[Rfam]
RNA: S10-Clostridia ribosomal protein leader
Organism: Roseburia sp. CAG:303
RNA sequence: UGAUAGCGAUGAAGUGUGAGGUUGCUGCCGGACAGGCAGGUUUUCCACUGAGCGAAUGUCAAGUUAGGAAACUGGCGACAA
Numbered sequence: 001u002g003a004u005a006g007c008g009a010u011g012a013a014g015u016g017u018g019a020g021g022u023u024g025c026u027g028c029c030g031g032a033c034a035g036g037c038a039g040g041u042u043u044u045c046c047a048c049u050g051a052g053c054g055a056a057u058g059u060c061a062a063g064u065u066a067g068g069a070a071a072c073u074g075g076c077g078a079c080a081a
Stems, first nucleotide, its partner, number of pairs: 014048003018045004025039005057080004063076004